[Rfam]
RNA sequence: AGAGGUCACAAGUUUGAGGCCAAAGCAGAAGUGCUCACAGCGCGGUUUGUCAGAUCCCAACAAAUCUGUGCAUUCUGCU
Numbered sequence: 001a002g003a004g005g006u007c008a009c010a011a012g013u014u015u016g017a018g019g020c021c022a023a024a025g026c027a028g029a030a031g032u033g034c035u036c037a038c039a040g041c042g043c044g045g046u047u048u049g050u051c052a053g054a055u056c057c058c059a060a061c062a063a064a065u066c067u068g069u070g071c072a073u074u075c076u077g078c079u
Stems, first nucleotide, its partner, number of pairs: 016047001019046003024079007031043003051068005
Rfam assigns this 79-nucleotide RNA sequence from Alligator mississippiensis to the family "Mammalian CPEB3 ribozyme". The family's consensus secondary structure is taken from published work. Rfam's curators write: The mammalian CPEB3 ribozyme is a self cleaving RNA located in the second intron of the CPEB3 gene which belongs to a family of genes regulating messenger RNA polyadenylation.